[Rfam]
RNA sequence: CAAGUUAGGGGUACAUAUUUUGCCUAAGGCAUUUCCCUGGACCUAAGCUGUGAUCCGCGAGGUAGCGUCGAUACUUGGACCAGUAACGUUGAGUCACCUGAUCAGUGAGCGUUGCUGGU
Numbered sequence: 001c002a003a004g005u006u007a008g009g010g011g012u013a014c015a016u017a018u019u020u021u022g023c024c025u026a027a028g029g030c031a032u033u034u035c036c037c038u039g040g041a042c043c044u045a046a047g048c049u050g051u052g053a054u055c056c057g058c059g060a061g062g063u064a065g066c067g068u069c070g071a072u073a074c075u076u077g078g079a080c081c082a083g084u085a086a087c088g089u090u091g092a093g094u095c096a097c098c099u100g101a102u103c104a105g106u107g108a109g110c111g112u113u114g115c116u117g118g119u
Stems, first nucleotide, its partner, number of pairs: 001077005006071001008069001009044004014039002021031004047066002055062002080118011098105002
RNA: Flavobacterium-1 RNA